[Rfam]
RNA: mir-277 microRNA precursor family
Organism: Hermetia illucens
RNA sequence: UAAGUUUUGGGGUGCGUGUCAGGUGUGCAUUUACAUAUUAUGAUACUGACGAAUUGUAAAUGCACUAUCUGGUACGACAUUCCAGGGCAG
Numbered sequence: 001u002a003a004g005u006u007u008u009g010g011g012g013u014g015c016g017u018g019u020c021a022g023g024u025g026u027g028c029a030u031u032u033a034c035a036u037a038u039u040a041u042g043a044u045a046c047u048g049a050c051g052a053a054u055u056g057u058a059a060a061u062g063c064a065c066u067a068u069c070u071g072g073u074a075c076g077a078c079a080u081u082c083c084a085g086g087g088c089a090g
Base pairs, nucleotide, nucleotide: 008084009083010082011081015076016075017074018073019072020071021070022069023068025065027063028062029061030060031059032058033057034056035055